RNA sequence: CUAAUUGAGGGGCGCUGCAGCGGGUUCUUCCGUCACGCUCAAUUAGCCAGCCAAAAACUAUUCAAGGGCGCUCUAUUCAA
Numbered sequence: 001c002u003a004a005u006u007g008a009g010g011g012g013c014g015c016u017g018c019a020g021c022g023g024g025u026u027c028u029u030c031c032g033u034c035a036c037g038c039u040c041a042a043u044u045a046g047c048c049a050g051c052c053a054a055a056a057a058c059u060a061u062u063c064a065a066g067g068g069c070g071c072u073c074u075a076u077u078c079a080a
Base pairs, nucleotide, nucleotide: 002045003044004043005042006041007040008039021032022031023030024029
This 80-nucleotide sequence from Aliikangiella marina belongs to the Rfam family "SAH (S-adenosyl-L-homocysteine) riboswitch aptamer". A search with the family's covariance model found it, with a score of 43 bits. Taxonomically the source falls in Aliikangiella (Bacteria, Pseudomonadati, Pseudomonadota, Gammaproteobacteria).